[Rfam]
RNA: SAM riboswitch aptamer (S box leader)
Organism: Halothermothrix orenii
RNA sequence: CUCUUAUCAAGAGUGGUGGAGGGACUGGCCCGAUGAAACCCGGCAACCUACCAAUGAAUGACAGGUAAGGUGCCAAUUCCUGCAGCAAAAUGCUGGAAGAUGAGAG
Numbered sequence: 001c002u003c004u005u006a007u008c009a010a011g012a013g014u015g016g017u018g019g020a021g022g023g024a025c026u027g028g029c030c031c032g033a034u035g036a037a038a039c040c041c042g043g044c045a046a047c048c049u050a051c052c053a054a055u056g057a058a059u060g061a062c063a064g065g066u067a068a069g070g071u072g073c074c075a076a077u078u079c080c081u082g083c084a085g086c087a088a089a090a091u092g093c094u095g096g097a098a099g100a101u102g103a104g105a106g
Stems, first nucleotide, its partner, number of pairs: 001106008013041001015040003021031003025082001027080002042074004047070002049067004078098001083095005